[Rfam]
RNA sequence: GCCUUCACUGGGGGGAGCCGAUGGGCGGCUGAGAGGUCCCGUUGCGGGACGACCCCUGGAACCUGAUCCGGUUCAUGCCGGCGUAGGGAUCAGUGAUGCGGACCCGC
Numbered sequence: 001g002c003c004u005u006c007a008c009u010g011g012g013g014g015g016a017g018c019c020g021a022u023g024g025g026c027g028g029c030u031g032a033g034a035g036g037u038c039c040c041g042u043u044g045c046g047g048g049a050c051g052a053c054c055c056c057u058g059g060a061a062c063c064u065g066a067u068c069c070g071g072u073u074c075a076u077g078c079c080g081g082c083g084u085a086g087g088g089a090u091c092a093g094u095g096a097u098g099c100g101g102a103c104c105c106g107c
Base pairs, nucleotide, nucleotide: 006095007094008093009092010091011056012055013054014053017029018028019027020026036050037049038048039047040046062087063086064085065084068081069080070079071078
Dot-bracket structure: .....(((((((((..((((.....))))......(((((.....)))))..)))).....((((..((((......))))..))))...)))))............
The family of this 107-nucleotide sequence from Azospirillum sp. B510 is "TPP riboswitch aptamer (THI element)". Taxonomically the source falls in Azospirillum (Bacteria, Alphaproteobacteria, Rhodospirillales, Azospirillaceae). A search with the family's covariance model found it, with a score of 74 bits. Pairs were carried over by alignment from the consensus structure, which is taken from published work.